[Rfam]
RNA sequence: CCGGGUAGUGUAAACAUCCUACACUUUCGGCGUCUGCCCUCAUGUGGCCGGGAGUGGGACUGUUUGCGCUGCCCGG
Numbered sequence: 001c002c003g004g005g006u007a008g009u010g011u012a013a014a015c016a017u018c019c020u021a022c023a024c025u026u027u028c029g030g031c032g033u034c035u036g037c038c039c040u041c042a043u044g045u046g047g048c049c050g051g052g053a054g055u056g057g058g059a060c061u062g063u064u065u066g067c068g069c070u071g072c073c074c075g076g
Base pairs, nucleotide, nucleotide: 002075003074004073005072006071008069009068010067011066012065013064014063015062016061017059018058019057020056023055024054025053026052027051028050029049030048031047
Shown here is a 76-nucleotide sequence from Gadus morhua, a member of the family "mir-30 microRNA precursor family". Rfam 15.1 lists 3,879 matches to the family in 647 species. From the family's description: This family consists of the mammalian microRNA (miRNA) precursor mir-30a. Animal miRNAs are transcribed as ~70nt precursors and subsequently processed by the Dicer enzyme to give a ~22nt product. In this case the mature sequence comes from both the 3' (miR-30) and 5' (mir-97-6) arms of the precursor. The extents of the hairpin precursors are not generally known and are estimated based on hairpin prediction. The match comes from Rfam's covariance-model search (51 bits). For this family Rfam cites "miRNPs: a novel class of ribonucleoproteins containing numerous microRNAs" (Mourelatos et al., Genes Dev, 2002). Pairs were carried over by alignment from the consensus structure, which was predicted with PFOLD. Its family is annotated with gene silencing by miRNA and RISC complex in the Gene Ontology.